[Rfam]
RNA sequence: UUGCGCACCGGAGAUGGCAUUCUCCCUUAACCGCCCACGUGGCUGAUGAUGCCUGCUUCGUC
Numbered sequence: 001u002u003g004c005g006c007a008c009c010g011g012a013g014a015u016g017g018c019a020u021u022c023u024c025c026c027u028u029a030a031c032c033g034c035c036c037a038c039g040u041g042g043c044u045g046a047u048g049a050u051g052c053c054u055g056c057u058u059c060g061u062c
Stems, first nucleotide, its partner, number of pairs: 010025004016053006033043003
Annotation:
Rfam assigns this 62-nucleotide RNA from Paraburkholderia solisilvae to the family "Fluoride riboswitch aptamer (crcB RNA motif)". Pairs were carried over by alignment from the consensus structure, which is taken from published work. Lineage of the source: Bacteria > Pseudomonadati > Betaproteobacteria > Burkholderiaceae > Paraburkholderia. The match comes from Rfam's covariance-model search (56 bits). For this family Rfam cites "Widespread genetic switches and toxicity resistance proteins for fluoride" (Baker et al., Science, 2012).